Rfam assigns this 63-nucleotide sequence from Anoxybacteroides amylolyticum to the family "RAGATH-18 RNA". About the family: Actinobacteria, Firmicutes, Fusobacteria, Thermotogae (1 example).
[Rfam]
RNA sequence: CCUGUGGAGAGCCAUGCAAACGAUAGUAGCCUUUUGGCGAGGUCGGGUUCGUUGAAGCAGGAA
Number, nucleotide and partner (000 for none) at each position: 001c061002c060003u059004g058005u057006g000007g000008a000009g050010a049011g048012c047013c046014a000015u000016g000017c000018a000019a000020a000021c045022g044023a043024u000025a000026g000027u000028a000029g038030c037031c036032u000033u000034u000035u000036g031037g030038c029039g000040a000041g000042g000043u023044c022045g021046g013047g012048u011049u010050c009051g000052u000053u000054g000055a000056a000057g005058c004059a003060g002061g001062a000063a000